mir-30 microRNA precursor family: a 77-nucleotide RNA sequence from Denticeps clupeoides. The organism belongs to Denticeps, within Eukaryota. About the family: This family consists of the mammalian microRNA (miRNA) precursor mir-30a. Animal miRNAs are transcribed as ~70nt precursors and subsequently processed by the Dicer enzyme to give a ~22nt product. The family's consensus secondary structure was predicted with PFOLD. The literature on the family includes a 2001 paper in Cell by Ambros, "microRNAs: tiny regulators with great potential".

[Rfam]
RNA sequence: UCAGCGGCUGUAAACAUCCCCGACUGGAAGCUGUGCCCACCUACCUGGGCUUUCAGUCAGAUGUUUGCGGCGGUCGG
Dot-bracket structure: .(.((..(((((((((((....((((((((((...............))))))))))..)))))))))))..)).).